[Rfam]
RNA: Mason-Pfizer monkey virus packaging signal
RNA sequence: UGGCGCCCAACGUGGGUACGGAGGAUUCAGCGACGGAACCAUCCGAGAGCCGGCAAGAGAGAAAGUAAAAGAGGCCCGCGCCAGCCGCAGUUGCCUGCUGCGACGUCUGAACCUCGGUAAGCGGACGGCACCCCUCCCCCUUCCCUUCAGCAAUGGGACAGGCAUUAAGUAAACAUGAGAUAUUUGUAGAAAGUUUGAGUAAAGCUUUAAAGGCGCAAGGAGUAAAGGUUAAAAUUAAGGAUUUGUGUCAAUAUUUUGAAUAUAUUGAGCAAGUUUGCCCA
Numbered sequence: 001u002g003g004c005g006c007c008c009a010a011c012g013u014g015g016g017u018a019c020g021g022a023g024g025a026u027u028c029a030g031c032g033a034c035g036g037a038a039c040c041a042u043c044c045g046a047g048a049g050c051c052g053g054c055a056a057g058a059g060a061g062a063a064a065g066u067a068a069a070a071g072a073g074g075c076c077c078g079c080g081c082c083a084g085c086c087g088c089a090g091u092u093g094c095c096u097g098c099u100g101c102g103a104c105g106u107c108u109g110a111a112c113c114u115c116g117g118u119a120a121g122c123g124g125a126c127g128g129c130a131c132c133c134c135u136c137c138c139c140c141u142u143c144c145c146u147u148c149a150g151c152a153a154u155g156g157g158a159c160a161g162g163c164a165u166u167a168a169g170u171a172a173a174c175a176u177g178a179g180a181u182a183u184u185u186g187u188a189g190a191a192a193g194u195u196u197g198a199g200u201a202a203a204g205c206u207u208u209a210a211a212g213g214c215g216c217a218a219g220g221a222g223u224a225a226a227g228g229u230u231a232a233a234a235u236u237a238a239g240g241a242u243u244u245g246u247g248u249c250a251a252u253a254u255u256u257u258g259a260a261u262a263u264a265u266u267g268a269g270c271a272a273g274u275u276u277g278c279c280c281a
Stems, first nucleotide, its partner, number of pairs: 006024002012019002032040001074118003082109002086102005126161001128159001131157003166209003169205002216258005222252002226244005266281002269278003